RNA: Alphaproteobacteria transfer-messenger RNA
RNA sequence: UCUCUUUAAAAAGUCUCAAUAUCCAACUAUAUUCAGAUUGCUGGGGAUAUCCCAGCUAUAGGGAUAAACGGCUUGCGUAAUACCCAUUACGGACCCGGGGGCGGUACCCGGCACCUCCACCAUAAAUUAGGGGGUGAUAUAGGAUCGACGAAUGCUUAAAGGUAAGUUUUUCUCUCGGUAUUGUACCACCGUUAUCGGGCUAUUUUAUAAAUGCUAACGAUGAAUUAGCGCUCGCUGCUUAAUCUAAUUAGGUAAGCGCGGUUCGGGAGACACCGGGCAACAGAAGUCUCCCACU
Dot-bracket structure: .......................................(((((.......)))))...(((((.....((.((((........(((..((...(((((.......)))))(((((((...........)))))))............)).))).......))))..)).)))))((((.[.[..[[)))).....]].].]........................................................[[[[...((((((]]]]..........))))))....